[Rfam]
RNA sequence: UUAAAUUCUAUGACGAGAACAAGUAGGAAAGGGAAAGUUCCUUCAGCGAGCUGGGUAUGGUGAGAGCCAGCGGAAACGAUCUUUCUGAAACAUCAUCUCUGAGAUGCAGGGCUGAAAUCCAGUAAGUCCUGACGGGUGUCCGCCGUUAAAAGGAACGCGUAUGAUGGUACGUUGAUGAGCGCUAUUGUUUAUGCAAUAGAAUUUGGGUGGUAACGCGGGUAUAACACUCGUCCCUUAU
Number, nucleotide and partner (000 for none) at each position: 001u000002u000003a000004a000005a000006u000007u104008c103009u000010a000011u000012g000013a000014c000015g099016a098017g097018a096019a000020c000021a000022a000023g000024u000025a000026g086027g085028a084029a083030a082031g081032g000033g000034a000035a000036a000037g000038u000039u074040c073041c072042u000043u000044c000045a000046g000047c000048g000049a000050g071051c070052u069053g068054g067055g000056u000057a000058u000059g000060g000061u000062g000063a000064g000065a000066g000067c054068c053069a052070g051071c050072g041073g040074a039075a000076a000077c000078g000079a000080u000081c031082u030083u029084u028085c027086u026087g000088a000089a000090a000091c000092a000093u000094c000095a000096u018097c017098u016099c015100u000101g000102a000103g008104a007105u000106g000107c131108a130109g129110g128111g127112c126113u125114g000115a000116a000117a000118u000119c000120c000121a000122g000123u000124a000125a113126g112127u111128c110129c109130u108131g107132a000133c145134g144135g143136g000137u000138g000139u000140c000141c000142g000143c135144c134145g133146u000147u000148a000149a000150a000151a000152g000153g000154a000155a000156c000157g000158c000159g000160u000161a000162u000163g000164a000165u000166g000167g000168u000169a000170c000171g000172u000173u000174g000175a000176u000177g000178a000179g000180c000181g000182c199183u198184a197185u196186u195187g194188u193189u000190u000191a000192u000193g188194c187195a186196a185197u184198a183199g182200a000201a000202u000203u000204u000205g234206g233207g232208u000209g000210g000211u000212a000213a000214c000215g231216c230217g229218g228219g227220u000221a000222u000223a000224a000225c000226a000227c219228u218229c217230g216231u215232c207233c206234c205235u000236u000237a000238u000
RNA: T-box leader